[Rfam]
RNA sequence: UCGUCCGGAGCGCCGCGAGCCGGGGACCCACCACCACUGGGGUGAAUCCGCAGUCACCAUGUGUGACCGCGGUAGGGCGCCCUUCGCCCGAACCCGUCAGCUAACUCGGUAGGCGGCCACGGAGAAGGG
Numbered sequence: 001u002c003g004u005c006c007g008g009a010g011c012g013c014c015g016c017g018a019g020c021c022g023g024g025g026a027c028c029c030a031c032c033a034c035c036a037c038u039g040g041g042g043u044g045a046a047u048c049c050g051c052a053g054u055c056a057c058c059a060u061g062u063g064u065g066a067c068c069g070c071g072g073u074a075g076g077g078c079g080c081c082c083u084u085c086g087c088c089c090g091a092a093c094c095c096g097u098c099a100g101c102u103a104a105c106u107c108g109g110u111a112g113g114c115g116g117c118c119a120c121g122g123a124g125a126a127g128g129g
Base pairs, nucleotide, nucleotide: 001018002017003016019110020109021108022107023106024105029039030038040095041094042093048072049071050070051069075089076088077087078086